Shown here is a 128-nucleotide RNA sequence from Bos taurus, a member of the family "Small nucleolar RNA SNORA11". About the family: U107 (SNORA11) is a member of the H/ACA class of snoRNAs that guide the sites of modification of uridines to pseudouridines. This snoRNA was identified by RT-PCR from blood cells and its expression confirmed by Northern blot analysis. There is no predicted target for this guide snRNA.

RNA sequence: GGGGUGUGUUCAGAGCAGGGGGCCUAAAGAACUGGCUUCUCUAUUUGCAAUACACCCAAUAGGAAUCUGGGUUAUUGUGACAGGGGCACAAAACUUGUGGCCUUCCUAUGAAGAAAUACUCUAUACAG
Numbered sequence: 001g002g003g004g005u006g007u008g009u010u011c012a013g014a015g016c017a018g019g020g021g022g023c024c025u026a027a028a029g030a031a032c033u034g035g036c037u038u039c040u041c042u043a044u045u046u047g048c049a050a051u052a053c054a055c056c057c058a059a060u061a062g063g064a065a066u067c068u069g070g071g072u073u074a075u076u077g078u079g080a081c082a083g084g085g086g087c088a089c090a091a092a093a094c095u096u097g098u099g100g101c102c103u104u105c106c107u108a109u110g111a112a113g114a115a116a117u118a119c120u121c122u123a124u125a126c127a128g
Stems, first nucleotide, its partner, number of pairs: 002057007013046003017042005022036003070121001071119002076114001078112001081110002083103003087099005
The family's consensus secondary structure was predicted with RNAalifold.
The family has 35 seed sequences and 2,014 matches in Rfam 15.1.